[Rfam]
RNA sequence: AACCAAUGAUGACUUGAUUUUGCCAUAUGAGUACUCUGAUUACACUCAAUACCGUUCCAUCAUUUACACUGAGGUU
Dot-bracket structure: ((((....................................................................))))

This 76-nucleotide sequence from Scleropages formosus belongs to the Rfam family "Small nucleolar RNA SNORD47". For this family Rfam cites "Purified box C/D snoRNPs are able to reproduce site-specific 2'-O-methylation of target RNA in vitro" (Galardi et al., Mol Cell Biol, 2002). The family's RNA type in Rfam is C/D-box small nucleolar RNA. Rfam 15.1 lists 755 matches to the family in 638 species. Its family is annotated with nucleolus and RNA processing in the Gene Ontology.